[Rfam]
RNA sequence: ACAUUCUUAAUCGCAUUCACUCAUAUAAUCGCGGGGAUAUGGCUCGCAAGUUUCUACCGGUUUGCCGUAAACAAAUCGACUAUGAGCAGCAAUGAAGGGAUC
Numbered sequence: 001a002c003a004u005u006c007u008u009a010a011u012c013g014c015a016u017u018c019a020c021u022c023a024u025a026u027a028a029u030c031g032c033g034g035g036g037a038u039a040u041g042g043c044u045c046g047c048a049a050g051u052u053u054c055u056a057c058c059g060g061u062u063u064g065c066c067g068u069a070a071a072c073a074a075a076u077c078g079a080c081u082a083u084g085a086g087c088a089g090c091a092a093u094g095a096a097g098g099g100a101u102c
Stems, first nucleotide, its partner, number of pairs: 020086006029049001031047005058078007
The record is a 102-nucleotide RNA sequence from Lederbergia lenta, which matches "Purine riboswitch aptamer" in Rfam. Gene Ontology term of the family: purine nucleobase biosynthetic process. Lineage of the source: Bacteria > Bacilli > Caryophanales > Bacillaceae > Lederbergia. About the family: Riboswitches are metabolite binding domains within certain messenger RNAs that serve as precision sensors for their corresponding targets. Allosteric rearrangement of mRNA structure is mediated by ligand binding, and this results in modulation of gene expression. A class of riboswitches that selectively recognises guanine and becomes saturated at concentrations as low as 5 nM. In Bacillus subtilis, this mRNA motif is located on at least five separate transcriptional units that together encode 17 genes that are mostly involved in purine transport and purine nucleotide biosynthesis. It has also been shown that some members of this family are specific for adenine instead.